About this RNA: Cyano-1 RNA: a 76-nucleotide RNA sequence from Nostoc sp. PCC 7120 = FACHB-418. Rfam 15.1 lists 283 matches to the family in 194 species.
RNA sequence: AGUUGUGUGAGGAGCAAGUUGAAACUAAAAAGCAUCUGGGGUGGAAACACGGCAACACUCCCAGAUGCUUUUUAAU
Numbered sequence: 001a002g003u004u005g006u007g008u009g010a011g012g013a014g015c016a017a018g019u020u021g022a023a024a025c026u027a028a029a030a031a032g033c034a035u036c037u038g039g040g041g042u043g044g045a046a047a048c049a050c051g052g053c054a055a056c057a058c059u060c061c062c063a064g065a066u067g068c069u070u071u072u073u074a075a076u
Base pairs, nucleotide, nucleotide: 029071030070031069032068033067036064037063038062039061040060041058042057043056